The family of this 381-nucleotide RNA from Salinivibrio sp. KP-1 is "Bacterial RNase P class A".
[Rfam]
RNA sequence: CGAGUUGGCCGGGUAACCGCUGCUUUAUUGAUGUCCCACGGGAGACUGAUGAAGGGGAGGAAAGUCCGGGCUCCGCAGGGCAGGGUGCCAGGUAACGCCUGGGAGGCGCGAGCCUACGACCAGUGCAGCAGAGAGUAGACCGCCGAUGGCUUUUCGGAGCACAGGUAAGGGUGAAAGGGUGCGGUAAGAGCGCACCGCGCGACUGGCAACAGUUCGUGGCACGGUAAACUCCACCCGGAGCAAGACCAAAUAGGUCCCUAUUGGCGCGGCCCGCGUUUGGGGACGGGUAGGUUGCUGGAGCCUGUGAGCAAUUGCAGGCCUAGACGAAUGGUUACCACCGUUUUUACGGUACAGAACCCGGCUUACAGGCCAACUCACCUC
Numbered sequence: 001c002g003a004g005u006u007g008g009c010c011g012g013g014u015a016a017c018c019g020c021u022g023c024u025u026u027a028u029u030g031a032u033g034u035c036c037c038a039c040g041g042g043a044g045a046c047u048g049a050u051g052a053a054g055g056g057g058a059g060g061a062a063a064g065u066c067c068g069g070g071c072u073c074c075g076c077a078g079g080g081c082a083g084g085g086u087g088c089c090a091g092g093u094a095a096c097g098c099c100u101g102g103g104a105g106g107c108g109c110g111a112g113c114c115u116a117c118g119a120c121c122a123g124u125g126c127a128g129c130a131g132a133g134a135g136u137a138g139a140c141c142g143c144c145g146a147u148g149g150c151u152u153u154u155c156g157g158a159g160c161a162c163a164g165g166u167a168a169g170g171g172u173g174a175a176a177g178g179g180u181g182c183g184g185u186a187a188g189a190g191c192g193c194a195c196c197g198c199g200c201g202a203c204u205g206g207c208a209a210c211a212g213u214u215c216g217u218g219g220c221a222c223g224g225u226a227a228a229c230u231c232c233a234c235c236c237g238g239a240g241c242a243a244g245a246c247c248a249a250a251u252a253g254g255u256c257c258c259u260a261u262u263g264g265c266g267c268g269g270c271c272c273g274c275g276u277u278u279g280g281g282g283a284c285g286g287g288u289a290g291g292u293u294g295c296u297g298g299a300g301c302c303u304g305u306g307a308g309c310a311a312u313u314g315c316a317g318g319c320c321u322a323g324a325c326g327a328a329u330g331g332u333u334a335c336c337a338c339c340g341u342u343u344u345u346a347c348g349g350u351a352c353a354g355a356a357c358c359c360g361g362c363u364u365a366c367a368g369g370c371c372a373a374c375u376c377a378c379c380u381c
Stems, first nucleotide, its partner, number of pairs: 002376009011366001012336007020057002023054008062364003066361005071240004078272004083236005088102005103117001104115004118231002123229002125225002140170002142166003147163002149160004178196006197220001198218005203212003244293004254284006263277005300319008
A search with the family's covariance model found it, with a score of 331 bits.